[Rfam]
RNA sequence: UGGGAUUCCGGUUCACGGCCGCGGUGCGCGGGCGACCCGGGACC
Numbered sequence: 001u002g003g004g005a006u007u008c009c010g011g012u013u014c015a016c017g018g019c020c021g022c023g024g025u026g027c028g029c030g031g032g033c034g035a036c037c038c039g040g041g042a043c044c
Base pairs, nucleotide, nucleotide: 003044004043006042008040009039010038011037016034017033019031020030021029022028023027
Rfam assigns this 44-nucleotide sequence from Sanguibacter sp. HDW7 to the family "L31-Actinobacteria ribosomal protein leader". The family is grouped with related families in Rfam's "Ribosomal Protein L31 Leader clan". Rfam classes the family as a cis-regulatory leader. The literature on the family includes a 2020 paper in BMC Microbiol by Eckert and Weinberg, "Discovery of 20 novel ribosomal leader candidates in bacteria and archaea". Lineage of the source: Bacteria > Actinomycetota > Micrococcales > Sanguibacteraceae > Sanguibacter.